RNA sequence: CUGCUCUAACCCGUAGAACCGAACUUGUGCGCCUAUGGCGUCCCUUUCACAAGUUUGCAUCUAUGGGUAUGGGCCGA
Numbered sequence: 001c002u003g004c005u006c007u008a009a010c011c012c013g014u015a016g017a018a019c020c021g022a023a024c025u026u027g028u029g030c031g032c033c034u035a036u037g038g039c040g041u042c043c044c045u046u047u048c049a050c051a052a053g054u055u056u057g058c059a060u061c062u063a064u065g066g067g068u069a070u071g072g073g074c075c076g077a
Stems, first nucleotide, its partner, number of pairs: 003074004010067003015062003020057010